[Rfam]
RNA sequence: AAAUACGAUUGUUAGGUGAGGCUCCUACAAAGAUAUAUGCUACUGCCCAGAAAAAUCGAGAGAUUCCAAUGGGUUAACAGAAAUAAUCGUGAAGGUUAUUUCUAAUGUAGCUGACGAAGAGUCUACGCUUUGUAGUGCUAAAGCUCAACAAUAAAGAAAUGUA
Numbered sequence: 001a002a003a004u005a006c007g008a009u010u011g012u013u014a015g016g017u018g019a020g021g022c023u024c025c026u027a028c029a030a031a032g033a034u035a036u037a038u039g040c041u042a043c044u045g046c047c048c049a050g051a052a053a054a055a056u057c058g059a060g061a062g063a064u065u066c067c068a069a070u071g072g073g074u075u076a077a078c079a080g081a082a083a084u085a086a087u088c089g090u091g092a093a094g095g096u097u098a099u100u101u102c103u104a105a106u107g108u109a110g111c112u113g114a115c116g117a118a119g120a121g122u123c124u125a126c127g128c129u130u131u132g133u134a135g136u137g138c139u140a141a142a143g144c145u146c147a148a149c150a151a152u153a154a155a156g157a158a159a160u161g162u163a
Stems, first nucleotide, its partner, number of pairs: 009155002011149002013093001015145003020139003025135008039111005045074005054065004080102004086096003113123003

A member of the RNA family "M-box riboswitch aptamer (ykoK leader)" from Thermobrachium celere, 163 nucleotides long. The organism belongs to Thermobrachium celere, within Bacteria. M-box riboswitch, also know as ykoK leader is described as a metaloregulatory RNA that sense divalent metals and function as a genetic control element of genes related to divalent metal transport in bacteria.